This 170-nucleotide RNA sequence from Paenibacillus bovis belongs to the Rfam family "glmS glucosamine-6-phosphate activated ribozyme aptamer". The match comes from Rfam's covariance-model search (80 bits). Rfam classes the family as a riboswitch. For this family Rfam cites "Backbone and nucleobase contacts to glucosamine-6-phosphate in the glmS ribozyme" (Jansen et al., Nat Struct Mol Biol, 2006). Taxonomically the source falls in Paenibacillus (Bacteria, Bacillati, Bacilli, Caryophanales). The family's consensus secondary structure is taken from published work.

[Rfam]
RNA sequence: AGGCAAGACCAAGCGCCAGAGCUCGAAGAGACGGAGAAAGUAAAUAUCGAGCUGACGAGGUGAAGGUGUUCGAAACAUUCGGCGGGGACCUUCCGGUGAUGCAUCAGACCGCAAAUUGGAAUCCAAAUGCAGAGAGUGAUCUCUGCCACAAAGAUCCAUUCGAUGCCAGC
Number, nucleotide and partner (000 for none) at each position: 001a000002g000003g000004c000005a000006a000007g000008a000009c000010c000011a000012a000013g000014c000015g000016c000017c000018a000019g000020a053021g052022c051023u050024c049025g048026a047027a000028g000029a000030g000031a000032c000033g000034g000035a000036g000037a000038a000039a000040g000041u000042a000043a000044a000045u000046a000047u026048c025049g024050a023051g022052c021053u020054g000055a000056c000057g000058a000059g000060g000061u000062g093063a092064a091065g090066g089067u000068g000069u000070u082071c081072g080073a079074a000075a000076c000077a000078u000079u073080c072081g071082g070083c000084g000085g000086g000087g000088a000089c066090c065091u064092u063093c062094c111095g110096g109097u108098g000099a000100u000101g000102c000103a000104u000105c000106a000107g000108a097109c096110c095111g094112c000113a000114a000115a160116u000117u158118g157119g156120a155121a000122u000123c000124c000125a000126a000127a000128u000129g146130c145131a144132g143133a142134g141135a140136g000137u000138g000139a000140u135141c134142u133143c132144u131145g130146c129147c000148a000149c000150a000151a000152a000153g000154a000155u120156c119157c118158a117159u000160u115161c000162g000163a000164u000165g000166c000167c000168a000169g000170c000